[Rfam]
RNA: Small nucleolar RNA SNORA26
RNA sequence: GGGCCCUGUUAAGGCUGAUGCAAUGCUUUAAGAGGCUAACACAUAAGGGUAAAGCUUCUUUACCCUUUGGGUAAAACCCAUAGAAGAGAUUGUAAACUUCUCUUUGGAUCCUAUCUGAAGUCACAGCU
Dot-bracket structure: ..(((((..(...(.((.(.(..........)..).)).)..)..)))))..............(((((........(((.(((.(((.((...))))).))).)))........)))))........